[Rfam]
RNA sequence: GCUUGCCUGAACCUGAGUGGUCUUGGGUGCGGACUUCAAAUCCGUAGCGGCUUAGCGGCCGAGCUGUUCGAUUCAGCCUGGCGAGC
Numbered sequence: 001g002c003u004u005g006c007c008u009g010a011a012c013c014u015g016a017g018u019g020g021u022c023u024u025g026g027g028u029g030c031g032g033a034c035u036u037c038a039a040a041u042c043c044g045u046a047g048c049g050g051c052u053u054a055g056c057g058g059c060c061g062a063g064c065u066g067u068u069c070g071a072u073u074c075a076g077c078c079u080g081g082c083g084a085g086c
Stems, first nucleotide, its partner, number of pairs: 001086007009078001012027006028046006048061005063077004

Selenocysteine transfer RNA: an 86-nucleotide sequence from Closterium sp. NIES-68. A search with the family's covariance model found it, with a score of 74 bits. NCBI's taxonomy places the organism under Eukaryota, Viridiplantae, Streptophyta, Zygnematophyceae, Closterium peracerosum-strigosum-littorale complex.